[Rfam]
RNA: Small nucleolar RNA SNORD16
Organism: Owenia fusiformis
RNA sequence: UGCAAUGAUGCUGUAAUUUGCGUCUGAUGGUGCGGGAUGGUGACAGUAUGCCUGCUGUCAUAGGCCUCCUCACUUAGUUGACGAACUCCAUCACUGAGCA
Numbered sequence: 001u002g003c004a005a006u007g008a009u010g011c012u013g014u015a016a017u018u019u020g021c022g023u024c025u026g027a028u029g030g031u032g033c034g035g036g037a038u039g040g041u042g043a044c045a046g047u048a049u050g051c052c053u054g055c056u057g058u059c060a061u062a063g064g065c066c067u068c069c070u071c072a073c074u075u076a077g078u079u080g081a082c083g084a085a086c087u088c089c090a091u092c093a094c095u096g097a098g099c100a
Stems, first nucleotide, its partner, number of pairs: 001100003021083004030073003034069001040065002042059005